[Rfam]
RNA sequence: GGCGGGCCUGCAAGUCCCGAGGCAGUCGAUCAUCGCAUGCUGCCUUGGGGAGCUUCCUUCCCGCC
Numbered sequence: 001g002g003c004g005g006g007c008c009u010g011c012a013a014g015u016c017c018c019g020a021g022g023c024a025g026u027c028g029a030u031c032a033u034c035g036c037a038u039g040c041u042g043c044c045u046u047g048g049g050g051a052g053c054u055u056c057c058u059u060c061c062c063g064c065c
Stems, first nucleotide, its partner, number of pairs: 001065006015050012027035002
The family of this 65-nucleotide sequence from Pseudomonas aeruginosa is "gabT RNA". Rfam classes the family as a cis-regulatory element. Rfam's curators put it in the seed alignment.